[Rfam]
RNA sequence: CAAGUAGCAAUACCCCAUGUCUUGCUUUAGCAAGACAUGGGGUAUUUCUAUUUGUUUU
Numbered sequence: 001c002a003a004g005u006a007g008c009a010a011u012a013c014c015c016c017a018u019g020u021c022u023u024g025c026u027u028u029a030g031c032a033a034g035a036c037a038u039g040g041g042g043u044a045u046u047u048c049u050a051u052u053u054g055u056u057u058u
Stems, first nucleotide, its partner, number of pairs: 001054007009046006019036006
Dot-bracket structure: (((((((.((((((....((((((......))))))....)))))).)))))))....

Annotation
Plastid-psbA-3 3UTR RNA: a 58-nucleotide sequence from Musa balbisiana. Its Rfam clan is "Plastid-psbA 3UTR RNA clan". Rfam describes the family as follows. Plastid psbA-3 is a non-coding RNA (ncRNA) present in plastids. It was identified in inverted repeat sequences in the 3 prime untranslate region (3UTR) of photosystem II quinone-binding protein (psbA). For this family Rfam cites "Retrograde signaling in plants: A critical review focusing on the GUN pathway and beyond" (Richter et al., Plant Commun, 2023).